[Rfam]
RNA sequence: UUUAUCCUUCGGGGCCGGGUGAAAAUCCCGACCGGCGGUGAUGAGGCGCAGAAGCUGCCUCUUAGUCCGUGACCCGUAUCUGUGAGAAUUUCGGAUGCGGUGGACCUGGUGAAACUCCGGGACCGACAGUGAAAGUCUGGAUGGGAGAAGGAACGA
Numbered sequence: 001u002u003u004a005u006c007c008u009u010c011g012g013g014g015c016c017g018g019g020u021g022a023a024a025a026u027c028c029c030g031a032c033c034g035g036c037g038g039u040g041a042u043g044a045g046g047c048g049c050a051g052a053a054g055c056u057g058c059c060u061c062u063u064a065g066u067c068c069g070u071g072a073c074c075c076g077u078a079u080c081u082g083u084g085a086g087a088a089u090u091u092c093g094g095a096u097g098c099g100g101u102g103g104a105c106c107u108g109g110u111g112a113a114a115c116u117c118c119g120g121g122a123c124c125g126a127c128a129g130u131g132a133a134a135g136u137c138u139g140g141a142u143g144g145g146a147g148a149a150g151g152a153a154c155g156a
Stems, first nucleotide, its partner, number of pairs: 005152006017029003031136002033125002035070004065123002074100005105121005127139003
Shown here is a 156-nucleotide RNA sequence from Halalkalibacter oceani, a member of the family "FMN riboswitch aptamer (RFN element)". Taxonomically the source falls in Halalkalibacter (Bacteria, Bacillota, Caryophanales, Bacillaceae). A search with the family's covariance model found it, with a score of 103 bits.